RNA sequence: UCCAGAAAAAGCCAAACUCCGGGUGACCGGAGGACGGAAAGAUACGGGUCCUAAGCACGAUAAAUAAAACCGCGCAAAGAUAUUUGAUCCAGUA
Numbered sequence: 001u002c003c004a005g006a007a008a009a010a011g012c013c014a015a016a017c018u019c020c021g022g023g024u025g026a027c028c029g030g031a032g033g034a035c036g037g038a039a040a041g042a043u044a045c046g047g048g049u050c051c052u053a054a055g056c057a058c059g060a061u062a063a064a065u066a067a068a069a070c071c072g073c074g075c076a077a078a079g080a081u082a083u084u085u086g087a088u089c090c091a092g093u094a
Stems, first nucleotide, its partner, number of pairs: 012037002017032006041089003045086003048081003055075002058072001

Rfam assigns this 94-nucleotide RNA from Desulfosarcina ovata to the family "c-di-GMP-I riboswitch aptamer". GEMM was predicted in a large-scale screen for bacterial structured RNA regulatory elements. The organism belongs to Desulfosarcina ovata, within Bacteria. The base pairs follow the family's consensus structure, which is taken from published work.